[Rfam]
Lysine riboswitch aptamer: a 176-nucleotide sequence from Allolucifera butyrica. Its family is annotated with lysine biosynthetic process in the Gene Ontology. Riboswitches are metabolite binding domains within certain messenger RNAs that serve as precision sensors for their corresponding targets. On this family, see Mandal et al., Cell 2003: "Riboswitches Control Fundamental Biochemical Pathways in Bacillus subtilis and Other Bacteria". The source organism's lineage runs through Bacteria, Bacillati, Negativicutes, Veillonellaceae and Allolucifera.
Nucleotides: 176
Base pairs, nucleotide, nucleotide: 006171007170008169009168010167011166016078017077018076019075021073022072023071024070032063033062034061035060036059037058082111083110084109085108086107087106088105089104090103091102092101112138113137114136115135116134117133118132119131120130121129122128140161141160142159143158144157145156146155
Number, partner (000 for none) and nucleotide at each position: 001000a002000a003000u004000a005000a006171g007170g008169a009168u010167a011166g012000a013000g014000g015000u016078g017077c018076g019075g020000u021073u022072a023071a024070u025000a026000a027000g028000a029000g030000u031000a032063a033062g034061u035060g036059c037058c038000c039000c040000g041000a042000g043000u044000c045000g046000c047000c048000g049000a050000c051000a052000a053000g054000g055000a056000a057000a058037g059036g060035c061034a062033c063032u064000g065000a066000a067000a068000g069000g070024a071023u072022u073021a074000c075019c076018c077017g078016c079000c080000g081000a082111a083110g084109u085108a086107u087106a088105a089104g090103c091102u092101u093000a094000c095000g096000g097000u098000a099000a100000a101092a102091a103090g104089c105088u106087u107086a108085u109084g110083c111082u112138g113137g114136u115135c116134u117133u118132g119131c120130a121129u122128u123000g124000a125000a126000u127000a128122g129121g130120u131119g132118u133117a134116a135115g136114a137113c138112u139000g140161u141160c142159a143158u144157g145156c146155g147000g148000a149000g150000u151000u152000g153000u154000c155146c156145g157144c158143a159142u160141g161140g162000a163000g164000c165000g166011c167010u168009a169008u170007c171006u172000g173000g174000u175000a176000c